[Rfam]
Bacterial RNase P class B: a 293-nucleotide sequence from [Mycoplasma] falconis.
RNA sequence: AAGCACGGCUAACUGCUGCAAUUUAUUGCAGAGGAAAAUCCGCUCUAUCACUUGCUGCGAUGCAAGUAGUGUUCAUACUAAACCUAAGAAGUUUAGGCACCAAAAGGUGACGACUAGUGCAACAGAGACGAGCUUAUUAAGUUAAGAUGCAACGAUGUAAACUCUAUGAGAUAGAAACCCAAAUUUUGGUAGGGGAACCUCAGUAAGGGAAUCAAACUAAGCUGGGGAUGUCUAAAAAGGCAUAGAUAAAUAGUUAGCGCUGUUUUUAACAGUACAGAAAGCGGUUUAUAGUG
Numbered sequence: 001a002a003g004c005a006c007g008g009c010u011a012a013c014u015g016c017u018g019c020a021a022u023u024u025a026u027u028g029c030a031g032a033g034g035a036a037a038a039u040c041c042g043c044u045c046u047a048u049c050a051c052u053u054g055c056u057g058c059g060a061u062g063c064a065a066g067u068a069g070u071g072u073u074c075a076u077a078c079u080a081a082a083c084c085u086a087a088g089a090a091g092u093u094u095a096g097g098c099a100c101c102a103a104a105a106g107g108u109g110a111c112g113a114c115u116a117g118u119g120c121a122a123c124a125g126a127g128a129c130g131a132g133c134u135u136a137u138u139a140a141g142u143u144a145a146g147a148u149g150c151a152a153c154g155a156u157g158u159a160a161a162c163u164c165u166a167u168g169a170g171a172u173a174g175a176a177a178c179c180c181a182a183a184u185u186u187u188g189g190u191a192g193g194g195g196a197a198c199c200u201c202a203g204u205a206a207g208g209g210a211a212u213c214a215a216a217c218u219a220a221g222c223u224g225g226g227g228a229u230g231u232c233u234a235a236a237a238a239g240g241c242a243u244a245g246a247u248a249a250a251u252a253g254u255u256a257g258c259g260c261u262g263u264u265u266u267u268a269a270c271a272g273u274a275c276a277g278a279a280a281g282c283g284g285u286u287u288a289u290a291g292u293g
Base pairs, nucleotide, nucleotide: 004293005292006291007289008258009257010256011255012254013253014252016031017030018029019028020027021026036287037286038285040284041283042282043281044280045174046173047172048171049170050067051066052065053064054063055062073169074168075167076166077165078096079095080094081093082092083091097111098109099108100107101106112164113163117162118161119158120157121156133146134145135144136143178194179193180192198227199226200225201224202223203222204221228243229242230241231240232239233238260272261271262270263269
A reference for the family is Frank and Pace (1998), "Ribonuclease P: unity and diversity in a tRNA processing ribozyme", Annu Rev Biochem.
The family's consensus secondary structure is taken from published work.
NCBI's taxonomy places the organism under Bacteria, Bacillati, Mycoplasmatota, Metamycoplasmataceae, Metamycoplasma.